Overview:
This 355-nucleotide RNA sequence from Verrucomicrobia bacterium S94 belongs to the Rfam family "transfer-messenger RNA". The family's consensus secondary structure is taken from published work. NCBI's taxonomy places the organism under Bacteria, Pseudomonadati, Verrucomicrobiota. The family's RNA type in Rfam is non-coding RNA gene. About the family: Bacterial tmRNA, also known as 10Sa RNA or SsrA, is named for its dual tRNA and mRNA-like properties.

RNA sequence: GGGGGCGACUGGUUUCGACGGGUAGGUUGAAGCUUCAGUGGCGUGUCGAGGUUGGUCUCCAGGCCUCGUAAAAAGGAGCCCGAAAAACACAAAUGCUGACGAAAGUUACGCACUGGCUGCAUAAAUGCGCCACGUCUCUACUCUGACUCCCGCUAAGGGAUAGAGGCGACGACAGCGGGAUAAGGCCAAUACCGGGGAUCCGGGUUGCGGCACGAAAAUGAUAACAGGAUUCUAGCGACCCAAGUGGCCCCGUCGGGGGGCAGCGAAGGCGGCGAAUCUUUUAAUCCCCGACUACACACGUAGAAGCUGUAGUGACUCUUACUCGGACGGGGGUUCAACUCCCCCGCCUCCACCA
Number, nucleotide and partner (000 for none) at each position: 001g351002g350003g349004g348005g347006c346007g345008a000009c000010u000011g000012g000013u000014u000015u000016c000017g000018a000019c325020g324021g323022g322023u321024a320025g319026g318027u000028u000029g000030a000031a000032g313033c312034u311035u000036c309037a308038g307039u306040g000041g000042c300043g299044u298045g297046u296047c068048g067049a066050g065051g064052u000053u000054g081055g080056u000057c078058u077059c076060c000061a000062g000063g000064c051065c050066u049067c048068g047069u000070a000071a000072a000073a000074a000075g000076g059077a058078g057079c000080c055081c054082g000083a000084a000085a000086a000087a000088c000089a000090c000091a000092a000093a000094u000095g000096c000097u000098g000099a000100c000101g000102a000103a000104a000105g000106u000107u000108a000109c000110g000111c000112a000113c000114u132115g131116g130117c000118u129119g128120c127121a000122u000123a000124a000125a000126u000127g120128c119129g118130c116131c115132a114133c168134g167135u166136c165137u164138c163139u000140a000141c000142u159143c158144u157145g000146a000147c000148u180149c179150c178151c177152g176153c175154u174155a000156a000157g144158g143159g142160a000161u000162a000163g138164a137165g136166g135167c134168g133169a000170c000171g000172a000173c000174a154175g153176c152177g151178g150179g149180a148181u000182a000183a000184g000185g211186c210187c209188a000189a000190u000191a000192c000193c000194g000195g000196g231197g230198a000199u228200c227201c000202g000203g000204g000205u000206u000207g000208c000209g187210g186211c185212a000213c000214g000215a000216a000217a000218a000219u000220g000221a000222u000223a000224a000225c000226a000227g200228g199229a000230u197231u196232c000233u000234a000235g273236c272237g000238a000239c269240c268241c000242a000243a000244g264245u000246g000247g261248c260249c259250c000251c000252g292253u291254c290255g289256g286257g285258g000259g249260g248261c247262a000263g000264c244265g000266a000267a000268g240269g239270c000271g000272g236273c235274g000275a000276a000277u000278c000279u000280u000281u000282u000283a000284a000285u257286c256287c000288c000289c255290g254291a253292c252293u000294a000295c000296a046297c045298a044299c043300g042301u000302a000303g000304a000305a000306g039307c038308u037309g036310u000311a034312g033313u032314g000315a000316c000317u000318c026319u025320u024321a023322c022323u021324c020325g019326g000327a000328c000329g000330g344331g343332g342333g341334u000335u000336c000337a000338a000339c000340u000341c333342c332343c331344c330345c007346g006347c005348c004349u003350c002351c001352a000353c000354c000355a000